[Rfam]
RNA: MIR1520 microRNA precursor family
Organism: Glycine max
RNA sequence: UUCUUAUUGAAUGAUUGCUACGUGUCAUGUUCUGAUUGGAUGUCAACUCCAUAAAAUAUGAAAUGCAUUAUUAUUUUCAUUGACCAAUCAAAACAUGACACGUGAUAAUCAUCAUCU
Numbered sequence: 001u002u003c004u005u006a007u008u009g010a011a012u013g014a015u016u017g018c019u020a021c022g023u024g025u026c027a028u029g030u031u032c033u034g035a036u037u038g039g040a041u042g043u044c045a046a047c048u049c050c051a052u053a054a055a056a057u058a059u060g061a062a063a064u065g066c067a068u069u070a071u072u073a074u075u076u077u078c079a080u081u082g083a084c085c086a087a088u089c090a091a092a093a094c095a096u097g098a099c100a101c102g103u104g105a106u107a108a109u110c111a112u113c114a115u116c117u
Base pairs, nucleotide, nucleotide: 017106019104020103022101023100026097027096028095030093031092033090035088036087037086